[Rfam]
The record is a 112-nucleotide sequence from Mastacembelus armatus, which matches "Small nucleolar RNA SNORD67" in Rfam. The base pairs follow the family's consensus structure. Rfam links the family to the GO terms nucleolus and RNA processing. The match comes from Rfam's covariance-model search (83 bits). The family's RNA type in Rfam is C/D-box small nucleolar RNA. Rfam describes the family as follows. snoRNA HBII-166 belongs to the C/D family of snoRNAs.
RNA sequence: UGUGAGAGUGAUGAGUUGCACGGAGCAGUUGGGGUGUGUUGCAGUGGCAUCAACACCCCAACCCGAGCCAACCUGAGGACGCACAGUGUGCACAGGGGCCAUCUGACUCCAC
Numbered sequence: 001u002g003u004g005a006g007a008g009u010g011a012u013g014a015g016u017u018g019c020a021c022g023g024a025g026c027a028g029u030u031g032g033g034g035u036g037u038g039u040u041g042c043a044g045u046g047g048c049a050u051c052a053a054c055a056c057c058c059c060a061a062c063c064c065g066a067g068c069c070a071a072c073c074u075g076a077g078g079a080c081g082c083a084c085a086g087u088g089u090g091c092a093c094a095g096g097g098g099c100c101a102u103c104u105g106a107c108u109c110c111a112c
Stems, first nucleotide, its partner, number of pairs: 006109003026065001028063001029061004034056003038051001040049003